The record is an 82-nucleotide RNA sequence from Megasphaera cerevisiae, which matches "RT-18 RNA" in Rfam. The family's consensus secondary structure is taken from published work. It scores 44 bits against the family's covariance model. Rfam classes the family as a small RNA.

RNA sequence: UGCCCCUUGGCAAAAAUAAAUGUUGAAAACGGAACGCUUAGUAGGGUAUAACGCCUCGAAAAGAGUUGAAACAUAACACGAA
Numbered sequence: 001u002g003c004c005c006c007u008u009g010g011c012a013a014a015a016a017u018a019a020a021u022g023u024u025g026a027a028a029a030c031g032g033a034a035c036g037c038u039u040a041g042u043a044g045g046g047u048a049u050a051a052c053g054c055c056u057c058g059a060a061a062a063g064a065g066u067u068g069a070a071a072c073a074u075a076a077c078a079c080g081a082a
Stems, first nucleotide, its partner, number of pairs: 001012004021073004033067003037063002044057002046054002